[Rfam]
RNA: Small nucleolar RNA ACA64
RNA sequence: ACAGUCUGACAAUCACUCGGGGUCUCCUGUGGCCUCUGGUGCAAUAACUGUGCCGACAGCAGAGGGACCAUUAAACUCAUUGCCCAGACUAAAGUGUGGGGAGUGAUACUUAUGUUCCUAUAAUC
Numbered sequence: 001a002c003a004g005u006c007u008g009a010c011a012a013u014c015a016c017u018c019g020g021g022g023u024c025u026c027c028u029g030u031g032g033c034c035u036c037u038g039g040u041g042c043a044a045u046a047a048c049u050g051u052g053c054c055g056a057c058a059g060c061a062g063a064g065g066g067a068c069c070a071u072u073a074a075a076c077u078c079a080u081u082g083c084c085c086a087g088a089c090u091a092a093a094g095u096g097u098g099g100g101g102a103g104u105g106a107u108a109c110u111u112a113u114g115u116u117c118c119u120a121u122a123a124u125c
Stems, first nucleotide, its partner, number of pairs: 006050001008048001014041003021034004065118001067116001069114003077106005085096002